Description
A member of the RNA family "Pseudomonas sRNA P1" from Pseudomonas sp. FeS53a, 180 nucleotides long. The match comes from Rfam's covariance-model search (130 bits). It is annotated as a non-coding RNA gene. The organism belongs to Pseudomonas, within Bacteria. About the family: This small RNA (sRNA) was computationally identified in the genome of the opportunistic pathogen Pseudomonas aeruginosa and its expression verified by northern blot analysis.

RNA sequence: GCACCCGUUUUAUUGCUGUUAUGGGUUUCGGCCGAGCUUAGCGUUGUUCAUUUUUUUACACAAUAGGGCUGUAAAAAAUUGAACACACCCCACUGGACGCCGCGCCGGGCAUGGCUCCGAGCAGGGCCAAGAUGCCCUGAAACGCCCCAAAAUUGGCCAUCGAGCCCCGCUUUAGGGCAA
Numbered sequence: 001g002c003a004c005c006c007g008u009u010u011u012a013u014u015g016c017u018g019u020u021a022u023g024g025g026u027u028u029c030g031g032c033c034g035a036g037c038u039u040a041g042c043g044u045u046g047u048u049c050a051u052u053u054u055u056u057u058a059c060a061c062a063a064u065a066g067g068g069c070u071g072u073a074a075a076a077a078a079u080u081g082a083a084c085a086c087a088c089c090c091c092a093c094u095g096g097a098c099g100c101c102g103c104g105c106c107g108g109g110c111a112u113g114g115c116u117c118c119g120a121g122c123a124g125g126g127c128c129a130a131g132a133u134g135c136c137c138u139g140a141a142a143c144g145c146c147c148c149a150a151a152a153u154u155g156g157c158c159a160u161c162g163a164g165c166c167c168c169g170c171u172u173u174a175g176g177g178c179a180a
Stems, first nucleotide, its partner, number of pairs: 024101003028097001034093001036091001041089001044085001046084003052078008164178002167175001